[Rfam]
RNA sequence: GAUCACCGUGUCCAAUACAAUUGGACACGGUGAUCCAUUCACCGUGUCCAAUACAUUUGUAUUGGACACGGUGAAUGGUUUACCGUGUCCAA
Numbered sequence: 001g002a003u004c005a006c007c008g009u010g011u012c013c014a015a016u017a018c019a020a021u022u023g024g025a026c027a028c029g030g031u032g033a034u035c036c037a038u039u040c041a042c043c044g045u046g047u048c049c050a051a052u053a054c055a056u057u058u059g060u061a062u063u064g065g066a067c068a069c070g071g072u073g074a075a076u077g078g079u080u081u082a083c084c085g086u087g088u089c090c091a092a
Stems, first nucleotide, its partner, number of pairs: 001035007012024004036077019
The family of this 92-nucleotide RNA from Ananas comosus is "SAM-Chlorobi RNA". It scores 38 bits against the family's covariance model. By type it is a cis-regulatory element.